[Rfam]
RNA sequence: UAUCUUGAUUCGCUGAGUUUCCCGGAAAACGGGAAAGCGGGGGAACCAUAAUGUCGACGUGUUUGGGGCAAAAUACCAACCGAAGGCAUGGGGUGAAUCUGCAAUUGUUCUUCAGCAAGAACAUUUCGCAGAGGGGUGACUCUCACCACCCUAAUCCGACAGCUAACCUCGUAAGCGUAGUCUGGGAGAGGAU
Numbered sequence: 001u002a003u004c005u006u007g008a009u010u011c012g013c014u015g016a017g018u019u020u021c022c023c024g025g026a027a028a029a030c031g032g033g034a035a036a037g038c039g040g041g042g043g044a045a046c047c048a049u050a051a052u053g054u055c056g057a058c059g060u061g062u063u064u065g066g067g068g069c070a071a072a073a074u075a076c077c078a079a080c081c082g083a084a085g086g087c088a089u090g091g092g093g094u095g096a097a098u099c100u101g102c103a104a105u106u107g108u109u110c111u112u113c114a115g116c117a118a119g120a121a122c123a124u125u126u127c128g129c130a131g132a133g134g135g136g137u138g139a140c141u142c143u144c145a146c147c148a149c150c151c152u153a154a155u156c157c158g159a160c161a162g163c164u165a166a167c168c169u170c171g172u173a174a175g176c177g178u179a180g181u182c183u184g185g186g187a188g189a190g191g192a193u
Stems, first nucleotide, its partner, number of pairs: 011177004018036007037172006047090002091157003099131004134151004
RNA: c-di-AMP riboswitch aptamer (ydaO/yuaA leader)